[Rfam]
RNA sequence: GCAAGCAGUUGGUAGCACUGUCCAGUGACUUGCUGGAUGCGCAGUUGUCCGGGCGUCAACGCCUGGCGGUGCAGGUGCAUCUGAUGAUGUGUGGGCGCUGCCGACGCUUCGUACGGCAGAUGCGUUUGAGCCAGCAGCUAUUGCGUGUCUGGCCGGAGCCUGUGAAUCCUGACACACAGGCUCUUGCUGAACGCCUGGCGGCCAUGCGUCGCGAACGACGCUAAAAAAUCCAUAGCCGGCCUGUAACGUUGGCCGGGCGA
Numbered sequence: 001g002c003a004a005g006c007a008g009u010u011g012g013u014a015g016c017a018c019u020g021u022c023c024a025g026u027g028a029c030u031u032g033c034u035g036g037a038u039g040c041g042c043a044g045u046u047g048u049c050c051g052g053g054c055g056u057c058a059a060c061g062c063c064u065g066g067c068g069g070u071g072c073a074g075g076u077g078c079a080u081c082u083g084a085u086g087a088u089g090u091g092u093g094g095g096c097g098c099u100g101c102c103g104a105c106g107c108u109u110c111g112u113a114c115g116g117c118a119g120a121u122g123c124g125u126u127u128g129a130g131c132c133a134g135c136a137g138c139u140a141u142u143g144c145g146u147g148u149c150u151g152g153c154c155g156g157a158g159c160c161u162g163u164g165a166a167u168c169c170u171g172a173c174a175c176a177c178a179g180g181c182u183c184u185u186g187c188u189g190a191a192c193g194c195c196u197g198g199c200g201g202c203c204a205u206g207c208g209u210c211g212c213g214a215a216c217g218a219c220g221c222u223a224a225a226a227a228a229u230c231c232a233u234a235g236c237c238g239g240c241c242u243g244u245a246a247c248g249u250u251g252g253c254c255g256g257g258c259g260a
Stems, first nucleotide, its partner, number of pairs: 011222003016217001020216001023213001025212003034140003038133002042128002047054002055125002060122002063119003067115002073082002089107004094102003142208005147175001149162001151160003164173001177197005184190002233260001235258002237255005

Pseudomonas sRNA P17: a 260-nucleotide sequence from Pseudomonas fluvialis. The match comes from Rfam's covariance-model search (52 bits). A reference for the family is Livny et al. (2006), "Identification of 17 Pseudomonas aeruginosa sRNAs and prediction of sRNA-encoding genes in 10 diverse pathogens using the bioinformatic tool sRNAPredict2", Nucleic Acids Res. Pairs were carried over by alignment from the consensus structure, which was predicted with WAR. By type it is a small RNA.